[Rfam]
Overview:
The record is a 75-nucleotide sequence from Chroococcidiopsis thermalis, which matches "Cyano-1 RNA" in Rfam.
RNA sequence: UUGUGUGUGAGGAGUGGUAUUAAAGAAAAAGCUCUUGGGGUCGAAACACGGCAAGACUCCCAAGAGCUUUUUCUA
Numbered sequence: 001u002u003g004u005g006u007g008u009g010a011g012g013a014g015u016g017g018u019a020u021u022a023a024a025g026a027a028a029a030a031g032c033u034c035u036u037g038g039g040g041u042c043g044a045a046a047c048a049c050g051g052c053a054a055g056a057c058u059c060c061c062a063a064g065a066g067c068u069u070u071u072u073c074u075a
Base pairs, nucleotide, nucleotide: 025073026072027071028070029069032066033065037061038060039059040057041056042055
By type it is a small RNA. The organism belongs to Chroococcidiopsis thermalis, within Bacteria.